[Rfam]
RNA sequence: UUUGACUACUAGGGGUGCCUAUUACUUGCAUAGGCUGAGAGAAAAGUGCCCAAACUUUUUAACCCUUAAGGACCUGAUCUAGUUUAUACUAGCGGAGGGAAGUAGAUAAUAGAUACC
Numbered sequence: 001u002u003u004g005a006c007u008a009c010u011a012g013g014g015g016u017g018c019c020u021a022u023u024a025c026u027u028g029c030a031u032a033g034g035c036u037g038a039g040a041g042a043a044a045a046g047u048g049c050c051c052a053a054a055c056u057u058u059u060u061a062a063c064c065c066u067u068a069a070g071g072a073c074c075u076g077a078u079c080u081a082g083u084u085u086a087u088a089c090u091a092g093c094g095g096a097g098g099g100a101a102g103u104a105g106a107u108a109a110u111a112g113a114u115a116c117c
Stems, first nucleotide, its partner, number of pairs: 006105005011066004017035005042059005073098003079092004
TPP riboswitch aptamer (THI element): a 117-nucleotide RNA from Pelagirhabdus alkalitolerans. The organism belongs to Pelagirhabdus, within Bacteria. Rfam links the family to the GO term thiamine pyrophosphate binding. A search with the family's covariance model found it, with a score of 75 bits.